RNA sequence: UUGUCAUGAUGAGGAAAACUAAUGUUUUCUGAUCUAUCUGAUGAGAAAUUCCUCCUACUCAUUCUGA
Numbered sequence: 001u002u003g004u005c006a007u008g009a010u011g012a013g014g015a016a017a018a019c020u021a022a023u024g025u026u027u028u029c030u031g032a033u034c035u036a037u038c039u040g041a042u043g044a045g046a047a048a049u050u051c052c053u054c055c056u057a058c059u060c061a062u063u064c065u066g067a
Base pairs, nucleotide, nucleotide: 006062007061008060009059025046026045029040
Shown here is a 67-nucleotide RNA sequence from Zizania palustris, a member of the family "Small nucleolar RNA Z105". Lineage of the source: Eukaryota > Streptophyta > Magnoliopsida > Poaceae > Zizania. A reference for the family is Chen et al. (2003), "The high diversity of snoRNAs in plants: identification and comparative study of 120 snoRNA genes from Oryza sativa", Nucleic Acids Res. Rfam classes the family as a C/D-box small nucleolar RNA. Rfam 15.1 lists 621 matches to the family in 204 species.